[Rfam]
The record is a 151-nucleotide sequence from Pelagirhabdus alkalitolerans, which matches "FMN riboswitch aptamer (RFN element)" in Rfam. It scores 107 bits against the family's covariance model. The organism belongs to Pelagirhabdus, within Bacteria.

RNA sequence: AAAUUCUUUUGGGGCAGGGUGUAAUUCCCGACCGACGGUAUGAGAUGAUCGAAUCAUCUUAAGUCCGUGACCCGGAGCAGCUGACGUUGCGAAGGUGGAUUUGGUGAGAGGCCAAAACCGACAGUUAGAGUCUGGAUGAGAAAAAGAAUGG
Numbered sequence: 001a002a003a004u005u006c007u008u009u010u011g012g013g014g015c016a017g018g019g020u021g022u023a024a025u026u027c028c029c030g031a032c033c034g035a036c037g038g039u040a041u042g043a044g045a046u047g048a049u050c051g052a053a054u055c056a057u058c059u060u061a062a063g064u065c066c067g068u069g070a071c072c073c074g075g076a077g078c079a080g081c082u083g084a085c086g087u088u089g090c091g092a093a094g095g096u097g098g099a100u101u102u103g104g105u106g107a108g109a110g111g112c113c114a115a116a117a118c119c120g121a122c123a124g125u126u127a128g129a130g131u132c133u134g135g136a137u138g139a140g141a142a143a144a145a146g147a148a149u150g151g
Stems, first nucleotide, its partner, number of pairs: 003149008017029003031131002033120002035068004063118002072095002100116005122134003